[Rfam]
RNA sequence: GCUUUAAUGAUGAUAUCCCAUGCGUGUCAUCUGAAGCCCACGUCUCCCUCUUGCGGCAGCUCCCUGGUCUGCGUCUUGCAGACCAGGACAGUCUGCCGCAGAGGAGUCUGGGAGAUGAUCACACCACUUUGUCUGAAAGC
Numbered sequence: 001g002c003u004u005u006a007a008u009g010a011u012g013a014u015a016u017c018c019c020a021u022g023c024g025u026g027u028c029a030u031c032u033g034a035a036g037c038c039c040a041c042g043u044c045u046c047c048c049u050c051u052u053g054c055g056g057c058a059g060c061u062c063c064c065u066g067g068u069c070u071g072c073g074u075c076u077u078g079c080a081g082a083c084c085a086g087g088a089c090a091g092u093c094u095g096c097c098g099c100a101g102a103g104g105a106g107u108c109u110g111g112g113a114g115a116u117g118a119u120c121a122c123a124c125c126a127c128u129u130u131g132u133c134u135g136a137a138a139g140c
Stems, first nucleotide, its partner, number of pairs: 001140004048103003052100006
Shown here is a 140-nucleotide RNA from Aquarana catesbeiana, a member of the family "Small nucleolar RNA SNORD10". Rfam classes the family as a C/D-box small nucleolar RNA. Rfam links the family to the GO terms nucleolus and RNA processing. Taxonomically the source falls in Aquarana (Eukaryota, Deuterostomia, Craniata, Ranoidea).